This 110-nucleotide sequence from Glycine max belongs to the Rfam family "MIR1520 microRNA precursor family". The family's consensus secondary structure was predicted with RNAalifold. Clan: MIR1520 microRNA precursor clan.
RNA sequence: UUUUUAUUAGACGUUGACUAUCACAUGUCAUGAGUUUAUUAGAAUUUGAUAUUAAUUAGGUGUAUAGAAUUAACGUUCAAUAAACACAUGACACACGAAAGUUAACAUUC
Numbered sequence: 001u002u003u004u005u006a007u008u009a010g011a012c013g014u015u016g017a018c019u020a021u022c023a024c025a026u027g028u029c030a031u032g033a034g035u036u037u038a039u040u041a042g043a044a045u046u047u048g049a050u051a052u053u054a055a056u057u058a059g060g061u062g063u064a065u066a067g068a069a070u071u072a073a074c075g076u077u078c079a080a081u082a083a084a085c086a087c088a089u090g091a092c093a094c095a096c097g098a099a100a101g102u103u104a105a106c107a108u109u110c
Stems, first nucleotide, its partner, number of pairs: 021098002026093001029090003034085003038081003